The record is a 113-nucleotide sequence from Cohnella faecalis, which matches "Guanidine-I riboswitch aptamer" in Rfam. Rfam's curators write: This family represents a conserved RNA structure found upstream of the ykkC and yxkD genes in Bacillus subtilis and related genes in other bacteria. The family has 100 seed sequences and 1,509 matches in Rfam 15.1. The source organism's lineage runs through Bacteria, Bacillati, Bacillota, Caryophanales and Cohnella.
[Rfam]
RNA sequence: UUGAAGGUUUCCUAGGGUUCCACGGCGCAGCAUGGCUGCUCCGGCUCGGUCCGAGAGGGAACGCGCCCGCCGCGACGGCGAGGCGAACACGGAGGGAUAAAAGCCCGGGAGUA
Numbered sequence: 001u002u003g004a005a006g007g008u009u010u011c012c013u014a015g016g017g018u019u020c021c022a023c024g025g026c027g028c029a030g031c032a033u034g035g036c037u038g039c040u041c042c043g044g045c046u047c048g049g050u051c052c053g054a055g056a057g058g059g060a061a062c063g064c065g066c067c068c069g070c071c072g073c074g075a076c077g078g079c080g081a082g083g084c085g086a087a088c089a090c091g092g093a094g095g096g097a098u099a100a101a102a103g104c105c106c107g108g109g110a111g112u113a
Stems, first nucleotide, its partner, number of pairs: 007062006015052002020049002022046001023043003027039004064085004068080003088108001090111001094106003